[Rfam]
RNA sequence: AUAUGCCUGGCUCCCUGUAUGCCAUUUGUGGAGCUCGUUGAAAUAUCAAUCGCCCUUAUGAAUGGCGUAUGAGGAGCCAAGCAUAU
Numbered sequence: 001a002u003a004u005g006c007c008u009g010g011c012u013c014c015c016u017g018u019a020u021g022c023c024a025u026u027u028g029u030g031g032a033g034c035u036c037g038u039u040g041a042a043a044u045a046u047c048a049a050u051c052g053c054c055c056u057u058a059u060g061a062a063u064g065g066c067g068u069a070u071g072a073g074g075a076g077c078c079a080a081g082c083a084u085a086u
Base pairs, nucleotide, nucleotide: 001086002085003084004083005082006081008079009078010077011076012075013074014073016071017070018069019068020067021066022065023064024063027060028059029058
mir-160 microRNA precursor family: an 86-nucleotide RNA from Lupinus angustifolius.
Gene Ontology terms of the family: miRNA-mediated post-transcriptional gene silencing and RISC complex.
The family's consensus secondary structure was predicted with PFOLD.